[Rfam]
Nucleotides: 101
Base pairs, nucleotide, nucleotide: 002100003099004098005097006096007095008094013043014042015041016040017039021032022031023030026076027075028074029073044068045067046066047065049064050063053060054059072093077090078089079088080087
Number, partner (000 for none) and nucleotide at each position: 001000a002100c003099c004098u005097u006096a007095u008094c009000a010000a011000g012000a013043g014042a015041g016040g017039u018000u019000u020000a021032g022031g023030g024000a025000a026076c027075u028074g029073g030023c031022c032021c033000a034000u035000a036000g037000a038000g039017a040016c041015c042014u043013c044068g045067g046066c047065a048000a049064c050063c051000a052000u053060u054059g055000a056000a057000u058000u059054c060053a061000a062000a063050g064049g065047u066046g067045c068044u069000a070000a071000c072093u073029c074028c075027a076026g077090c078089a079088g080087a081000u082000g083000a084000u085000u086000u087080u088079c089078u090077g091000a092000u093072a094008g095007a096006u097005g098004a099003g100002g101000g
Rfam assigns this 101-nucleotide sequence from Evansella cellulosilytica to the family "SAM riboswitch aptamer (S box leader)". From the family's description: The SAM riboswitch is found upstream of a number of genes which code for proteins involved in methionine or cysteine biosynthesis in Gram-positive bacteria. Lineage of the source: Bacteria > Bacillota > Caryophanales > Bacillaceae > Evansella cellulosilytica. The family's consensus secondary structure is taken from published work. Its family is annotated with regulation of gene expression in the Gene Ontology.